RNA sequence: GUCUGACACGGACCGACGGUGGCCAGUUUGGCCCCAAGCUUCGGUCGCGGUGCGAUGAC
Numbered sequence: 001g002u003c004u005g006a007c008a009c010g011g012a013c014c015g016a017c018g019g020u021g022g023c024c025a026g027u028u029u030g031g032c033c034c035c036a037a038g039c040u041u042c043g044g045u046c047g048c049g050g051u052g053c054g055a056u057g058a059c
Stems, first nucleotide, its partner, number of pairs: 007049001009047003013043001015042002018035002021033005
This 59-nucleotide RNA from Paracoccus isoporae belongs to the Rfam family "Selenocysteine insertion sequence 3". NCBI's taxonomy places the organism under Bacteria, Pseudomonadota, Alphaproteobacteria, Rhodobacterales, Paracoccus. It is annotated as a cis-regulatory element. The match comes from Rfam's covariance-model search (78 bits).